[Rfam]
RNA: DUF805b RNA
RNA sequence: ACAGCGUAUGCCGAAAAGCUGAACAAAGAGUAGGCG
Numbered sequence: 001a002c003a004g005c006g007u008a009u010g011c012c013g014a015a016a017a018g019c020u021g022a023a024c025a026a027a028g029a030g031u032a033g034g035c036g
Stems, first nucleotide, its partner, number of pairs: 002021004010035003